[Rfam]
RNA sequence: AGAACCUUUAAAUCAGUCCAGAGAGGCUGUAAGGAGUAGAAUAUAAUUAUAGAAAUUAUUGUAUGUUUUUAUAACUUCUUACGGCAGUAAGAAGUUUUUUUUACU
Dot-bracket structure: ....((((.....(((((......))))).))))...((.(((((((.((....)).))))))).))...(.((((((((((....)))))))))).).......